The family of this 147-nucleotide RNA from Schizosaccharomyces pombe is "small nucleolar RNA snR97".
[Rfam]
RNA sequence: AGGGUAAACUGUCGUUCCUUAAUACUUUUGUUACUUAUGCACCGAAUUCGACUAUUUCGCAUUCAUUAGUGAUAGACGUGAAUCAACAAAUCCAAGGGGUGUAGAUAGUUUAUAAUUUAUCUUGUAACGCAGUUUGUUAUCACAUAC
Numbered sequence: 001a002g003g004g005u006a007a008a009c010u011g012u013c014g015u016u017c018c019u020u021a022a023u024a025c026u027u028u029u030g031u032u033a034c035u036u037a038u039g040c041a042c043c044g045a046a047u048u049c050g051a052c053u054a055u056u057u058c059g060c061a062u063u064c065a066u067u068a069g070u071g072a073u074a075g076a077c078g079u080g081a082a083u084c085a086a087c088a089a090a091u092c093c094a095a096g097g098g099g100u101g102u103a104g105a106u107a108g109u110u111u112a113u114a115a116u117u118u119a120u121c122u123u124g125u126a127a128c129g130c131a132g133u134u135u136g137u138u139a140u141c142a143c144a145u146a147c
Base pairs, nucleotide, nucleotide: 023080024079025078027076028075029074030073031072032071033070034069035068037062038061039060040059099130100129101128102127103122104121105120106119107118108117
The organism belongs to Schizosaccharomyces, within Eukaryota. It is one of the family's seed sequences.